Source information: Rfam assigns this 66-nucleotide sequence from Felis catus to the family "Small nucleolar RNA SNORD58". Its Rfam clan is "SNORD58 clan". Rfam's curators write: snoRNA U58 is found in introns 1, 3 and 6 of the ribosomal protein RPL17 gene in humans. Rfam classes the family as a C/D-box small nucleolar RNA. For this family Rfam cites "Site-specific ribose methylation of preribosomal RNA: a novel function for small nucleolar RNAs" (Kiss-Laszlo et al., Cell, 1996).

RNA sequence: UUGCUGGGAUGACUAUCUUAGGACACCUUUGGAUUAACCAUGAAAAAAAACUGUGUUCUGAGCAAC
Numbered sequence: 001u002u003g004c005u006g007g008g009a010u011g012a013c014u015a016u017c018u019u020a021g022g023a024c025a026c027c028u029u030u031g032g033a034u035u036a037a038c039c040a041u042g043a044a045a046a047a048a049a050a051c052u053g054u055g056u057u058c059u060g061a062g063c064a065a066c
Stems, first nucleotide, its partner, number of pairs: 001065004